[Rfam]
RNA sequence: UGAUGCCAUGGGCAAAAGGUCAGAAAGUCGAUGUAAGCUUGCUUGCAAGAGGAUUUUUGACCUCUUGACCCGCCAAAAAAUGAGUAAGUAGCCAUUUUUUUUCAAGAAAAAAAUGAGCGGAUUACGAAUGUUUUUAUACAUUUUCACAUUUCACUUUGUGUAGAAUGUUUCGCGCA
Numbered sequence: 001u002g003a004u005g006c007c008a009u010g011g012g013c014a015a016a017a018g019g020u021c022a023g024a025a026a027g028u029c030g031a032u033g034u035a036a037g038c039u040u041g042c043u044u045g046c047a048a049g050a051g052g053a054u055u056u057u058u059g060a061c062c063u064c065u066u067g068a069c070c071c072g073c074c075a076a077a078a079a080a081u082g083a084g085u086a087a088g089u090a091g092c093c094a095u096u097u098u099u100u101u102u103c104a105a106g107a108a109a110a111a112a113a114u115g116a117g118c119g120g121a122u123u124a125c126g127a128a129u130g131u132u133u134u135u136a137u138a139c140a141u142u143u144u145c146a147c148a149u150u151u152c153a154c155u156u157u158g159u160g161u162a163g164a165a166u167g168u169u170u171c172g173c174g175c176a
Stems, first nucleotide, its partner, number of pairs: 004176003010070002013067001017063010028052002032048001033046005075134004080129002084125004091118002093115009138168007